RNA sequence: UGCAAUUGCCGCUGGGAUACACCCUGUGCUCGCUUUGAGUUUAUGUUGCAAGUGAACACAGCUGGUGGUAUCCAGAGGCCGUUGAC
Numbered sequence: 001u002g003c004a005a006u007u008g009c010c011g012c013u014g015g016g017a018u019a020c021a022c023c024c025u026g027u028g029c030u031c032g033c034u035u036u037g038a039g040u041u042u043a044u045g046u047u048g049c050a051a052g053u054g055a056a057c058a059c060a061g062c063u064g065g066u067g068g069u070a071u072c073c074a075g076a077g078g079c080c081g082u083u084g085a086c
Base pairs, nucleotide, nucleotide: 008079009078010077012075015073016072017071019069020068021066022065023064024061025060026059028057030055031054

mir-317 microRNA precursor family: an 86-nucleotide sequence from Drosophila mojavensis. Taxonomically the source falls in mojavensis species complex (Eukaryota, Allotriocarida, Dicondylia, Schizophora).